[Rfam]
RNA sequence: CGGCCAAUGAUGACAUGGCCACUGCACAAUCUGAGUUCUGGGAACCAUGUGAUGAAUUGUGUUCUGGGAAUAGACUGUAGCCG
Numbered sequence: 001c002g003g004c005c006a007a008u009g010a011u012g013a014c015a016u017g018g019c020c021a022c023u024g025c026a027c028a029a030u031c032u033g034a035g036u037u038c039u040g041g042g043a044a045c046c047a048u049g050u051g052a053u054g055a056a057u058u059g060u061g062u063u064c065u066g067g068g069a070a071u072a073g074a075c076u077g078u079a080g081c082c083g
Stems, first nucleotide, its partner, number of pairs: 002082003039047003

small Cajal body-specific RNA 18: an 83-nucleotide sequence from Callithrix jacchus. The match comes from Rfam's covariance-model search (81 bits). It is annotated as a small Cajal body RNA. scaRNAs are a specific class of small nuclear RNAs which localise to the Cajal bodies and guide the modification of RNA polymerase II transcribed spliceosomal RNAs U1, U2, U4, U5 and U12. This C/D box domain U91 (also known as U4-8) was identified by Darzacq and is predicted to guide the 2'O-ribose methylation of U4 snRNA C8. A reference for the family is Darzacq et al. (2002), "Cajal body-specific small nuclear RNAs: a novel class of 2'-O-methylation and pseudouridylation guide RNAs", EMBO J. The organism belongs to Callithrix, within Eukaryota.